Annotation: The family of this 87-nucleotide sequence from Paenalicyclobacillus mengziensis is "c-di-GMP-I riboswitch aptamer". A search with the family's covariance model found it, with a score of 87 bits. Taxonomically the source falls in Paenalicyclobacillus (Bacteria, Bacillati, Bacilli, Alicyclobacillaceae).
RNA sequence: CAAUCGAAACGGCAAACCCAUUGAAAGAUGGGGACGCAAAGCCAUGGACCUAAGACGCAUGAGCGUUAUGGUUGCCAGGUUGCCGUC
Numbered sequence: 001c002a003a004u005c006g007a008a009a010c011g012g013c014a015a016a017c018c019c020a021u022u023g024a025a026a027g028a029u030g031g032g033g034a035c036g037c038a039a040a041g042c043c044a045u046g047g048a049c050c051u052a053a054g055a056c057g058c059a060u061g062a063g064c065g066u067u068a069u070g071g072u073u074g075c076c077a078g079g080u081u082g083c084c085g086u087c
Stems, first nucleotide, its partner, number of pairs: 012037002017032006040081004045077003048072003055066004